The record is a 278-nucleotide RNA from Mycoplasmopsis meleagridis, which matches "Bacterial RNase P class B" in Rfam.
[Rfam]
RNA sequence: UGUAUCGGUCAACAGCUGCUUUAUUUUAAGUAGAGGAAAGUCCACGCUAACACAAUCUGAGAUGAUUGUAGUGUUCAUGCUGAAUCUAAUAAAUUCAGGCUUAGACGACUAGUGCCACAGAGACGAGAGUUGUGAAACGGGUAAACUCCAUGAGUUAGAAACCCAAAUUUAGGUAGGGGAACUCUUCAAAGAGAAAUGAAUUAAUGAAGAGAACUUUUUUAUAAAGUUAGAUAAAUUGUUGACGCCUUUUACUAAGGUACAAAACGUGGCUUAUAGAU
Numbered sequence: 001u002g003u004a005u006c007g008g009u010c011a012a013c014a015g016c017u018g019c020u021u022u023a024u025u026u027u028a029a030g031u032a033g034a035g036g037a038a039a040g041u042c043c044a045c046g047c048u049a050a051c052a053c054a055a056u057c058u059g060a061g062a063u064g065a066u067u068g069u070a071g072u073g074u075u076c077a078u079g080c081u082g083a084a085u086c087u088a089a090u091a092a093a094u095u096c097a098g099g100c101u102u103a104g105a106c107g108a109c110u111a112g113u114g115c116c117a118c119a120g121a122g123a124c125g126a127g128a129g130u131u132g133u134g135a136a137a138c139g140g141g142u143a144a145a146c147u148c149c150a151u152g153a154g155u156u157a158g159a160a161a162c163c164c165a166a167a168u169u170u171a172g173g174u175a176g177g178g179g180a181a182c183u184c185u186u187c188a189a190a191g192a193g194a195a196a197u198g199a200a201u202u203a204a205u206g207a208a209g210a211g212a213a214c215u216u217u218u219u220u221a222u223a224a225a226g227u228u229a230g231a232u233a234a235a236u237u238g239u240u241g242a243c244g245c246c247u248u249u250u251a252c253u254a255a256g257g258u259a260c261a262a263a264a265c266g267u268g269g270c271u272u273a274u275a276g277a278u
Stems, first nucleotide, its partner, number of pairs: 004278003007274001008243007016033006038272003042269005047158005052069006075153005080098006099106001100104001107148002112146002114142003162178003182211007212228006245257004
Rfam links the family to the GO terms ribonuclease P activity, dimeric ribonuclease P complex and tRNA processing.
The match comes from Rfam's covariance-model search (219 bits).
Ribonuclease P (RNase P) is a ubiquitous endoribonuclease, found in archaea, bacteria and eukarya as well as chloroplasts and mitochondria. Its best characterised activity is the generation of mature 5'-ends of tRNAs by cleaving the 5'-leader elements of precursor-tRNAs. Cellular RNase Ps are ribonucleoproteins.
It is annotated as a ribozyme.
Taxonomically the source falls in Mycoplasmopsis meleagridis (Bacteria, Mycoplasmatota, Metamycoplasmataceae, Mycoplasmopsis).